This 103-nucleotide sequence from Paenibacillus sp. J2TS4 belongs to the Rfam family "Purine riboswitch aptamer". The match comes from Rfam's covariance-model search (80 bits). Gene Ontology term of the family: purine nucleobase biosynthetic process.
[Rfam]
RNA sequence: CUAAUUUAAUAGAACUAGACUCGUAUAAUCACGGGGAUAUGGCCCGUAAGUCUCUACCCAAAAGCCGUAAAUUUUUUGGACUACGAGUUUGGCUUUCGUUCUG
Numbered sequence: 001c002u003a004a005u006u007u008a009a010u011a012g013a014a015c016u017a018g019a020c021u022c023g024u025a026u027a028a029u030c031a032c033g034g035g036g037a038u039a040u041g042g043c044c045c046g047u048a049a050g051u052c053u054c055u056a057c058c059c060a061a062a063a064g065c066c067g068u069a070a071a072u073u074u075u076u077u078g079g080a081c082u083a084c085g086a087g088u089u090u091g092g093c094u095u096u097c098g099u100u101c102u103g
Stems, first nucleotide, its partner, number of pairs: 018089008029049001031047005058079007